[Rfam]
Shown here is a 91-nucleotide RNA from Streptomyces indicus, a member of the family "che1 RNA". By type it is a small RNA. Pairs were carried over by alignment from the consensus structure, which is taken from published work. The organism belongs to Streptomyces, within Bacteria.
RNA sequence: UGGACAGGGGGGUCUCCGCCGACCGGCGGGGCCUGUCCGACCGGUCGCGCUCCGGCGCGGCUUCGUGGUUGUCGCUCGGGGGUGAUCGCCC
Numbered sequence: 001u002g003g004a005c006a007g008g009g010g011g012g013u014c015u016c017c018g019c020c021g022a023c024c025g026g027c028g029g030g031g032c033c034u035g036u037c038c039g040a041c042c043g044g045u046c047g048c049g050c051u052c053c054g055g056c057g058c059g060g061c062u063u064c065g066u067g068g069u070u071g072u073c074g075c076u077c078g079g080g081g082g083u084g085a086u087c088g089c090c091c
Stems, first nucleotide, its partner, number of pairs: 001039008014031007043062008